Shown here is a 79-nucleotide RNA from Flaviramulus basaltis, a member of the family "Flavo-1 RNA".
[Rfam]
RNA sequence: UACUAACCCCGCGUUAGGAAUUGUAAUGACAUCCUUUUUUACUUUUUUAAAAAAGAUAUAAUGUAAAGCCCAACCCCUG
Number, nucleotide and partner (000 for none) at each position: 001u000002a000003c000004u000005a000006a000007c000008c000009c000010c000011g000012c000013g000014u000015u000016a000017g071018g070019a000020a000021u067022u066023g000024u000025a000026a062027u061028g000029a000030c000031a057032u056033c055034c000035u000036u000037u052038u051039u050040u049041a048042c000043u000044u000045u000046u000047u000048u041049a040050a039051a038052a037053a000054a000055g033056a032057u031058a000059u000060a000061a027062u026063g000064u000065a000066a022067a021068g000069c000070c018071c017072a000073a000074c000075c000076c000077c000078u000079g000